T-box leader: a 262-nucleotide sequence from Carboxydocella thermautotrophica. From the family's description: Uncharged tRNA acts as the effector for transcription antitermination of genes in the T-box leader family. T-boxes are found upstream of many aminoacyl-tRNA synthetase genes and some amino acid biosynthetic genes usually in Gram-positive bacteria. The anticodon of a specific tRNA base pairs to a specifier sequence within the T-box motif, and the NCCA acceptor tail of the tRNA base pairs to a conserved bulge in the T-box antiterminator hairpin. The source organism's lineage runs through Bacteria, Bacillati, Eubacteriales, Carboxydocella and Carboxydocella thermautotrophica. Rfam links the family to the GO term tRNA binding. On this family, see Grundy et al., J Bacteriol 1994: "Interaction between the acceptor end of tRNA and the T box stimulates antitermination in the Bacillus subtilis tyrS gene: a new role for the discriminator base". Rfam classes the family as a cis-regulatory leader.

RNA sequence: UAAAAAGCGAUGACGGAGAAAAGUAGCACGGGUCAUACCUCCCAGGGAGGCGGGGUCGGCGACUGGAAGCCCUGCCAGGUUAGCCGUAGCGAAGUUCCCUCCUGAGCAGCCAGCUGAACGCCAUUUCGGCCAGUAGGUGCGGCCGGUCACCCUGACCGUUAUCCCGGGGGGCAUAUCGGACUUACGGUCCCGUAUGCUUAAUGAGUGCCGGCUAUCAGCCGGAAACUGGGUGGUACCGCGGAGCACAGGCUUCGUCCCAUUA
Number, nucleotide and partner (000 for none) at each position: 001u000002a000003a000004a000005a000006a000007g107008c106009g000010a000011u000012g000013a000014c000015g102016g101017a100018g099019a000020a000021a000022a000023g000024u000025a000026g090027c089028a087029c086030g085031g000032g000033u000034c000035a000036u000037a000038c079039c078040u077041c000042c000043c000044a000045g000046g000047g000048a000049g076050g075051c074052g073053g072054g071055g070056u069057c000058g000059g000060c000061g000062a000063c000064u000065g000066g000067a000068a000069g056070c055071c054072c053073u052074g051075c050076c049077a040078g039079g038080u000081u000082a000083g000084c000085c030086g029087u028088a000089g027090c026091g000092a000093a000094g000095u000096u000097c000098c000099c018100u017101c016102c015103u000104g000105a000106g008107c007108a000109g000110c142111c141112a000113g138114c137115u136116g000117a000118a000119c000120g000121c000122c000123a000124u000125u000126u000127c000128g000129g000130c000131c000132a000133g000134u000135a000136g115137g114138u113139g000140c000141g111142g110143c000144c158145g157146g156147u000148c000149a000150c000151c000152c000153u000154g000155a000156c146157c145158g144159u000160u000161a000162u000163c000164c000165c000166g000167g000168g000169g000170g000171g000172c000173a000174u000175a000176u000177c000178g000179g000180a000181c000182u000183u000184a000185c000186g000187g000188u000189c000190c000191c000192g000193u000194a000195u000196g000197c000198u000199u000200a000201a000202u000203g000204a000205g000206u000207g000208c222209c221210g220211g219212c218213u217214a000215u000216c000217a213218g212219c211220c210221g209222g208223a000224a000225a000226c000227u259228g258229g257230g256231u000232g000233g000234u000235a000236c000237c000238g255239c254240g253241g252242a251243g000244c000245a000246c000247a000248g000249g000250c000251u242252u241253c240254g239255u238256c230257c229258c228259a227260u000261u000262a000